[Rfam]
RNA sequence: GCCGGUCCUCGGUAGUGGUCCCCGGACAUUCCCCUCAGGGCAUGCCGUGGGCUUCGAUCGAUGACCGGC
Numbered sequence: 001g002c003c004g005g006u007c008c009u010c011g012g013u014a015g016u017g018g019u020c021c022c023c024g025g026a027c028a029u030u031c032c033c034c035u036c037a038g039g040g041c042a043u044g045c046c047g048u049g050g051g052c053u054u055c056g057a058u059c060g061a062u063g064a065c066c067g068g069c
Stems, first nucleotide, its partner, number of pairs: 001069007009061005017053005023047003027044003